[Rfam]
RNA sequence: CUAACUCAAAUUUGUAUGGAGUUGGACCAGCGCCCCUAGCGGCAAACGAAGAGAAACUGUUCCAACUCCAUACAAAUUAGAGUUA
Numbered sequence: 001c002u003a004a005c006u007c008a009a010a011u012u013u014g015u016a017u018g019g020a021g022u023u024g025g026a027c028c029a030g031c032g033c034c035c036c037u038a039g040c041g042g043c044a045a046a047c048g049a050a051g052a053g054a055a056a057c058u059g060u061u062c063c064a065a066c067u068c069c070a071u072a073c074a075a076a077u078u079a080g081a082g083u084u085a
Stems, first nucleotide, its partner, number of pairs: 009078008018069001020067007028059002034053001035051001039047001
Shown here is an 85-nucleotide RNA from Bombyx mori, a member of the family "mir-2807 microRNA precursor family".
Gene Ontology terms of the family: RISC complex and miRNA-mediated post-transcriptional gene silencing.
A reference for the family is Liu et al. (2010), "MicroRNAs of Bombyx mori identified by Solexa sequencing", BMC Genomics.